The family of this 82-nucleotide RNA from Leptobrachium leishanense is "mir-128 microRNA precursor family".
On this family, see Chen et al., Genes Dev 2005: "The developmental miRNA profiles of zebrafish as determined by small RNA cloning".
The source organism's lineage runs through Eukaryota, Gnathostomata, Euteleostomi, Megophryidae and Leptobrachium.
The family has 57 seed sequences and 1,337 matches in Rfam 15.1.
[Rfam]
RNA sequence: GAGCAGCUGGAUUCGGGCCCGGGGCACUGUAUGAGAGGGAUUAAAAUUCUCACAGUGAACCGGUCUCUUUUUCAGCUACUUC
Dot-bracket structure: .....(((((....(((.(((...((((((..(((.............)))))))))...))).)))....)))))......